[Rfam]
RNA sequence: CCAGCCACGUGCCCUUAUCACUUCCCCUGCUAGCUUUUCCCUGAGUGCUGGACGGAGAACUGAUAAGGGUGGGUGACUGA
Numbered sequence: 001c002c003a004g005c006c007a008c009g010u011g012c013c014c015u016u017a018u019c020a021c022u023u024c025c026c027c028u029g030c031u032a033g034c035u036u037u038u039c040c041c042u043g044a045g046u047g048c049u050g051g052a053c054g055g056a057g058a059a060c061u062g063a064u065a066a067g068g069g070u071g072g073g074u075g076a077c078u079g080a
Stems, first nucleotide, its partner, number of pairs: 012069009022059003026055002030051002
Shown here is an 80-nucleotide RNA sequence from Molossus molossus, a member of the family "mir-184 microRNA precursor family".